[Rfam]
This 114-nucleotide sequence from Festuca pratensis belongs to the Rfam family "Small nucleolar RNA Z188". It is annotated as a C/D-box small nucleolar RNA.
RNA sequence: GCGUGCCAAUGAUGAUCGAAAAGCGUCGGUGAAUUCUGGAUGAAUGCGCUUGUGCACCGACCAGUGUGCAGCUAUGCAUGGUGAUAUCACCUGCGUAAUACAUCUGAGGCACGC
Number, nucleotide and partner (000 for none) at each position: 001g000002c113003g112004u111005g110006c109007c108008a000009a000010u000011g000012a000013u000014g000015a000016u000017c000018g000019a000020a000021a000022a000023g000024c000025g000026u000027c000028g000029g000030u000031g000032a000033a000034u000035u000036c000037u000038g000039g000040a000041u000042g000043a000044a000045u000046g000047c000048g000049c000050u000051u000052g000053u000054g000055c000056a000057c000058c000059g000060a000061c000062c000063a000064g000065u000066g000067u000068g000069c000070a000071g000072c000073u000074a000075u000076g000077c000078a000079u000080g000081g000082u000083g000084a000085u000086a000087u000088c000089a000090c000091c000092u000093g000094c000095g000096u000097a000098a000099u000100a000101c000102a000103u000104c000105u000106g000107a000108g007109g006110c005111a004112c003113g002114c000